[Rfam]
RNA sequence: ACACAGAAGGGAGGUGGUUCGGCAGAUGUAUGAAUACCGGACGCGUGAGGUGGCUGCGGGCUAGCGGCCCGACACCCCACCCAGUGCGGUGCCGGACCAGCACGUGAGAGACGCGUGCAGCCGGCCCAAUCCCAAGCAGUCACCCGACCCGUGAGCUCGCCGGUACGUCCGGCCGGCUCCUCGCCGUCAGGCGGGGGACCCGAGCUCGCGGGUCGUCUGCG
Number, nucleotide and partner (000 for none) at each position: 001a000002c000003a000004c000005a000006g000007a000008a000009g000010g000011g000012a000013g000014g057015u056016g055017g054018u053019u000020c000021g000022g000023c000024a000025g000026a000027u000028g000029u000030a000031u000032g000033a000034a000035u000036a000037c000038c000039g000040g000041a000042c000043g000044c000045g000046u000047g000048a000049g000050g000051u000052g000053g018054c017055u016056g015057c014058g000059g126060g125061c124062u123063a000064g121065c120066g000067g118068c117069c000070c115071g000072a000073c000074a000075c000076c000077c000078c000079a000080c000081c000082c000083a000084g000085u000086g000087c000088g000089g000090u000091g000092c000093c000094g000095g000096a000097c000098c000099a000100g000101c000102a000103c000104g000105u000106g000107a000108g000109a000110g000111a000112c000113g000114c000115g070116u000117g068118c067119a000120g065121c064122c000123g062124g061125c060126c059127c000128a000129a000130u000131c000132c000133c000134a000135a000136g000137c000138a000139g000140u000141c000142a000143c000144c000145c215146g214147a213148c212149c211150c210151g209152u208153g207154a206155g205156c204157u203158c000159g177160c176161c175162g174163g173164u172165a000166c000167g000168u000169c000170c000171g000172g164173c163174c162175g161176g160177c159178u000179c000180c000181u000182c000183g000184c000185c000186g000187u000188c000189a000190g000191g000192c000193g000194g000195g000196g000197g000198a000199c000200c000201c000202g000203a157204g156205c155206u154207c153208g152209c151210g150211g149212g148213u147214c146215g145216u000217c000218u000219g000220c000221g000
A member of the RNA family "Actinobacteria sRNA Ms_IGR-5", 221 nucleotides long. The pairing is the family consensus, mapped onto this sequence. It is annotated as a small RNA. The match comes from Rfam's covariance-model search (81 bits).